[Rfam]
RNA sequence: GGCGUACGACAGGGGAGCGCACAUGCGCUGAGAGUGCGGAAACGCAGACCCUCGAACCUGCUCCGGUUAGCACCGGCGAAGGAAGUCGAGCUCUCCCCGGG
Dot-bracket structure: ......((((((((..((((....))))......((((....))))..))))....(((...((((......))))...)))..)))).............

TPP riboswitch aptamer (THI element): a 101-nucleotide RNA from Trueperella bernardiae. The family's consensus secondary structure is taken from published work. A search with the family's covariance model found it, with a score of 57 bits. NCBI's taxonomy places the organism under Bacteria, Actinomycetota, Actinomycetes, Actinomycetales, Trueperella.